[Rfam]
Rfam assigns this 130-nucleotide sequence from Schaalia odontolytica to the family "FMN riboswitch aptamer (RFN element)".
RNA sequence: UGAGUACUCCGGGGUCGGUGAAAGUCCGAACCGGCGGUGAUAGUCCGCGACCCGCCCUCACAGAACGAGGGCGGUUGAGCCGGUGAAAUUCCGGCACCGACGGUUAAAGUCCGGAUGGGAGGAGUGCAUG
Numbered sequence: 001u002g003a004g005u006a007c008u009c010c011g012g013g014g015u016c017g018g019u020g021a022a023a024g025u026c027c028g029a030a031c032c033g034g035c036g037g038u039g040a041u042a043g044u045c046c047g048c049g050a051c052c053c054g055c056c057c058u059c060a061c062a063g064a065a066c067g068a069g070g071g072c073g074g075u076u077g078a079g080c081c082g083g084u085g086a087a088a089u090u091c092c093g094g095c096a097c098c099g100a101c102g103g104u105u106a107a108a109g110u111c112c113g114g115a116u117g118g119g120a121g122g123a124g125u126g127c128a129u130g
Base pairs, nucleotide, nucleotide: 004127005126006125007124008123009122010121016028017027018026030110031109032099033098034048035047036046037045043097044096052074053073079095080094081093082092083091101113102112103111

Record summary:
Gene Ontology term of the family: FMN binding. The organism belongs to Schaalia, within Bacteria. About the family: The RFN element is a highly conserved domain that is found frequently in the 5'-untranslated regions of prokaryotic mRNAs that encode for flavin mononucleotide (FMN) biosynthesis and transport proteins.